Bacterial RNase P class B: a 395-nucleotide RNA sequence from Amphibacillus xylanus. A search with the family's covariance model found it, with a score of 301 bits. The literature on the family includes a 1998 paper in Annu Rev Biochem by Frank and Pace, "Ribonuclease P: unity and diversity in a tRNA processing ribozyme".

RNA sequence: AUGUUUGCGUAAUCGCUAUAAAUACUAAGUAUUUAUAGAGGAAAGUCCAUGCUCGCACAGGCUGAGAUGCUUGUAGUGUUCGUGCUUGAUGAAUUCAUAAAUCAAGGCAGUUGUUAAUCAACUGACGGCAGGAUCAUUAGCUAAGUCUUUUUAUAGAUAUGCAAUUGAUCCAUAAAAGUGCCACAGUGACGUAGCUAAAUUGGAAACGAUUUAGGUGGAACGGGUAAACCCCACGAGCGAGCAACCCAAAUUAUGGUAGGGGCAUCUUGGAUUAGGGAAAUGAACCGAAACAAGGACGGAUCAUGUGAGAAUGAUUCCGUAGAUAGAUGAUUACGACUAACUGUACAAGGUUGACCACCGUAAUAGUACGUUAGUACAGAACAUGGCUUAUAAAA
Dot-bracket structure: ...(((((((((((.((((((...........))))))....[[[.[[[[[(((((((((((......)))))).....(((((((((((..........))))))(((((((.....)))))).)((..(((....(.((...(((........)))..)).)....)))......(((((............((((((((....))))))))........)))..))))))))))))))...(((...........)))...(((((.....................)))))(((((...............)))))........))))))).(((((.((((...................))))))))).......]]]]]]]].).)))
Notes
Rfam classes the family as a ribozyme.